[Rfam]
RNA sequence: UUUUGGUGCAUUGUAAUUGCAUUGCAUUGCAAUAUAUAAGUAUGCAGUGCAUUUACCAUGCAAACAUGA
Numbered sequence: 001u002u003u004u005g006g007u008g009c010a011u012u013g014u015a016a017u018u019g020c021a022u023u024g025c026a027u028u029g030c031a032a033u034a035u036a037u038a039a040g041u042a043u044g045c046a047g048u049g050c051a052u053u054u055a056c057c058a059u060g061c062a063a064a065c066a067u068g069a
Stems, first nucleotide, its partner, number of pairs: 001069002004066001006065001007062005013056004019050001021048007
Dot-bracket structure: ((.(.((((((.((((..(.(((((((..............))))))).)..)))).)))))..)).))

This 69-nucleotide RNA sequence from Araneus ventricosus belongs to the Rfam family "mir-33 microRNA precursor family". It scores 50 bits against the family's covariance model. For this family Rfam cites "Direct sequencing and expression analysis of a large number of miRNAs in Aedes aegypti and a multi-species survey of novel mosquito miRNAs" (Li et al., BMC Genomics, 2009). Lineage of the source: Eukaryota > Eumetazoa > Araneomorphae > Araneidae > Araneus.